[Rfam]
RNA sequence: UUCUUAUCUAGAGAGGUGGAGGGACUGGCCCUAUGAUACCUCGGCAGCAGACUGUAAAGUACUGUGCCAAUUCCAGCAAGCUUUAAGUAGCUUGAAAGAUAAGAA
Numbered sequence: 001u002u003c004u005u006a007u008c009u010a011g012a013g014a015g016g017u018g019g020a021g022g023g024a025c026u027g028g029c030c031c032u033a034u035g036a037u038a039c040c041u042c043g044g045c046a047g048c049a050g051a052c053u054g055u056a057a058a059g060u061a062c063u064g065u066g067c068c069a070a071u072u073c074c075a076g077c078a079a080g081c082u083u084u085a086a087g088u089a090g091c092u093u094g095a096a097a098g099a100u101a102a103g104a105a
Base pairs, nucleotide, nucleotide: 001105002104003103004102005101006100007099008098013042014041015040016039017038021031022030023029025076026075027074028073043068044067045066046065048064049063051060052059053058072097077094078093079092080091081090082089

The record is a 105-nucleotide RNA sequence from Peribacillus psychrosaccharolyticus, which matches "SAM riboswitch aptamer (S box leader)" in Rfam.
It scores 97 bits against the family's covariance model.